[Rfam]
RNA sequence: CCCUCCGAGGGGCGCUGCGACCCCGACACGGGGCCAGGCUCGGGGCGGGAUUACCGCAACAACUGCGCCCAUUCAGA
Number, nucleotide and partner (000 for none) at each position: 001c000002c000003c045004u044005c043006c042007g041008a040009g000010g000011g000012g000013c000014g000015c000016u000017g000018c000019g000020a000021c033022c032023c031024c030025g029026a000027c000028a000029c025030g024031g023032g022033g021034c000035c000036a000037g000038g000039c000040u008041c007042g006043g005044g004045g003046c000047g000048g000049g000050a000051u000052u000053a000054c000055c000056g000057c000058a000059a000060c000061a000062a000063c000064u000065g000066c000067g000068c000069c000070c000071a000072u000073u000074c000075a000076g000077a000

Rfam assigns this 77-nucleotide RNA sequence from Sulfurimicrobium lacus to the family "SAH (S-adenosyl-L-homocysteine) riboswitch aptamer". The match comes from Rfam's covariance-model search (60 bits). The source organism's lineage runs through Bacteria, Pseudomonadati, Pseudomonadota, Nitrosomonadales and Sulfurimicrobium. On this family, see Wang et al., Mol Cell 2008: "Riboswitches that sense S-adenosylhomocysteine and activate genes involved in coenzyme recycling".